A member of the RNA family "SAM riboswitch aptamer (S box leader)" from Bacillus sp. B-jedd, 102 nucleotides long. The family's consensus secondary structure is taken from published work. A search with the family's covariance model found it, with a score of 84 bits.
[Rfam]
RNA sequence: UUCUUAUCAAGAGAGAUGGAGGGACUGGCCCGUUGAAAUCUCGGCAGCGGAACUUAGCGUUUCUGUGCCAAAUCCAGCAAGCAAAGACUUGAAAGAUAAGAU
Numbered sequence: 001u002u003c004u005u006a007u008c009a010a011g012a013g014a015g016a017u018g019g020a021g022g023g024a025c026u027g028g029c030c031c032g033u034u035g036a037a038a039u040c041u042c043g044g045c046a047g048c049g050g051a052a053c054u055u056a057g058c059g060u061u062u063c064u065g066u067g068c069c070a071a072a073u074c075c076a077g078c079a080a081g082c083a084a085a086g087a088c089u090u091g092a093a094a095g096a097u098a099a100g101a102u
Stems, first nucleotide, its partner, number of pairs: 002101007013042005021031003025077004043069004048065002050062004073094001078091004